[Rfam]
RNA sequence: ACCGAAUUCCCCGGAGAAGGAACUCCGGGAAGAUAUAAAAGAAAAAAUGAUUCAAUAAGUAGUAGGAAUGAACGAACAUGUUUCAAUA
Numbered sequence: 001a002c003c004g005a006a007u008u009c010c011c012c013g014g015a016g017a018a019g020g021a022a023c024u025c026c027g028g029g030a031a032g033a034u035a036u037a038a039a040a041g042a043a044a045a046a047a048u049g050a051u052u053c054a055a056u057a058a059g060u061a062g063u064a065g066g067a068a069u070g071a072a073c074g075a076a077c078a079u080g081u082u083u084c085a086a087u088a
Stems, first nucleotide, its partner, number of pairs: 007031003011028006070083004

Shown here is an 88-nucleotide sequence from Pharus lappulaceus, a member of the family "Plastid-rpl20 3UTR RNA". The organism belongs to Pharus, within Eukaryota. From the family's description: Plastid rpl20 is a non-coding RNA (ncRNA) recognised in plastids. It was found in the three prime untranslated region (3UTR) of rpl20 gene, it presence in the 3UTR region sugest a role in transcript maduration. For this family Rfam cites "Retrograde signaling in plants: A critical review focusing on the GUN pathway and beyond" (Richter et al., Plant Commun, 2023). The family's RNA type in Rfam is cis-regulatory element. The base pairs follow the family's consensus structure, which was predicted with LocARNA.